[Rfam]
RNA sequence: UAAUCGAACCAUCAGCUCAACGGUGGUUAACAGGGACGAAAAGUACGAUCCCUAGUCCGGUGAAGGCGGGCAAGACUGUCAAAUUGCUGGGACACCCUAAAGGCGCUGGUACUAACUUGGCUUGGAAACGAGCUGAGGGUCGAGUAACUUGCUCGAGAGUGACAAUCCAGCGUAUGAUAGGUGCCUUUCAAGUACCUUGAAAUGGGCAAUCAGCAGCCAAGCUCUAAGUUAUUCUGGUCUGUUUGCAGGGCAGAAUGAUAGGAGUGCAGUUCAGAGACUAGAUGUCAGUCGGUACUCCAGGGCAAUUAAUUAUGCAUGGAGUGCUUAAGGUAUAGUCCAAUCCCAGUUGAAAGACUGGC
Numbered sequence: 001u002a003a004u005c006g007a008a009c010c011a012u013c014a015g016c017u018c019a020a021c022g023g024u025g026g027u028u029a030a031c032a033g034g035g036a037c038g039a040a041a042a043g044u045a046c047g048a049u050c051c052c053u054a055g056u057c058c059g060g061u062g063a064a065g066g067c068g069g070g071c072a073a074g075a076c077u078g079u080c081a082a083a084u085u086g087c088u089g090g091g092a093c094a095c096c097c098u099a100a101a102g103g104c105g106c107u108g109g110u111a112c113u114a115a116c117u118u119g120g121c122u123u124g125g126a127a128a129c130g131a132g133c134u135g136a137g138g139g140u141c142g143a144g145u146a147a148c149u150u151g152c153u154c155g156a157g158a159g160u161g162a163c164a165a166u167c168c169a170g171c172g173u174a175u176g177a178u179a180g181g182u183g184c185c186u187u188u189c190a191a192g193u194a195c196c197u198u199g200a201a202a203u204g205g206g207c208a209a210u211c212a213g214c215a216g217c218c219a220a221g222c223u224c225u226a227a228g229u230u231a232u233u234c235u236g237g238u239c240u241g242u243u244u245g246c247a248g249g250g251c252a253g254a255a256u257g258a259u260a261g262g263a264g265u266g267c268a269g270u271u272c273a274g275a276g277a278c279u280a281g282a283u284g285u286c287a288g289u290c291g292g293u294a295c296u297c298c299a300g301g302g303c304a305a306u307u308a309a310u311u312a313u314g315c316a317u318g319g320a321g322u323g324c325u326u327a328a329g330g331u332a333u334a335g336u337c338c339a340a341u342c343c344c345a346g347u348u349g350a351a352a353g354a355c356u357g358g359c
Stems, first nucleotide, its partner, number of pairs: 001029005036044002074290005080284002085215006095206003216270002221265004229258008274338001276337005292324008344357005